The record is a 317-nucleotide part of an RNA from Faecalibacterium prausnitzii, which matches "Bacterial large subunit ribosomal RNA" in Rfam. Rfam links the family to the GO terms structural constituent of ribosome and ribosome. Clan: LSU clan. For this family Rfam cites "Crystal structure of the ribosome at 5.5 A resolution" (Yusupov et al., Science, 2001).
RNA sequence: GCGAAUGCAGUGAGAAUCUGCAUGGCCGAAAGCCUCAGGUUUCUGGAGGAAGGUUCGUCCGCUCCAGGUUAGUCGGGAGCUAAGGUGAGGCCUAACGGCGUAGCCGAUGCACAGACGGUAGAGAUUCCGUCACCACCAAAAGAGUUAAACACAGGGACACAUUUGAAGUCUCGGAGCCGGGUGUUGGUUCCGGUAGCGAUCGAGGGAAAUUAGUACCGAAGUCCGGGAUGGAAGAUGGCGAGAAAAGCUGUGUGUAUUUCUGCGGUGCCCGUACCGCAAACCGACACAGGUAGGUAGGAAGAAGAUUCUAAGGCCAA
Numbered sequence: 001g002c003g004a005a006u007g008c009a010g011u012g013a014g015a016a017u018c019u020g021c022a023u024g025g026c027c028g029a030a031a032g033c034c035u036c037a038g039g040u041u042u043c044u045g046g047a048g049g050a051a052g053g054u055u056c057g058u059c060c061g062c063u064c065c066a067g068g069u070u071a072g073u074c075g076g077g078a079g080c081u082a083a084g085g086u087g088a089g090g091c092c093u094a095a096c097g098g099c100g101u102a103g104c105c106g107a108u109g110c111a112c113a114g115a116c117g118g119u120a121g122a123g124a125u126u127c128c129g130u131c132a133c134c135a136c137c138a139a140a141a142g143a144g145u146u147a148a149a150c151a152c153a154g155g156g157a158c159a160c161a162u163u164u165g166a167a168g169u170c171u172c173g174g175a176g177c178c179g180g181g182u183g184u185u186g187g188u189u190c191c192g193g194u195a196g197c198g199a200u201c202g203a204g205g206g207a208a209a210u211u212a213g214u215a216c217c218g219a220a221g222u223c224c225g226g227g228a229u230g231g232a233a234g235a236u237g238g239c240g241a242g243a244a245a246a247g248c249u250g251u252g253u254g255u256a257u258u259u260c261u262g263c264g265g266u267g268c269c270c271g272u273a274c275c276g277c278a279a280a281c282c283g284a285c286a287c288a289g290g291u292a293g294g295u296a297g298g299a300a301g302a303a304g305a306u307u308c309u310a311a312g313g314c315c316a317a
Stems, first nucleotide, its partner, number of pairs: 005023006024315004032295004038275002043067006052060002074271004079110002084105003088101001090099003114131005134267004140261001146256002150252005160237003171226005176194006195200001204217002207214001281290002297309004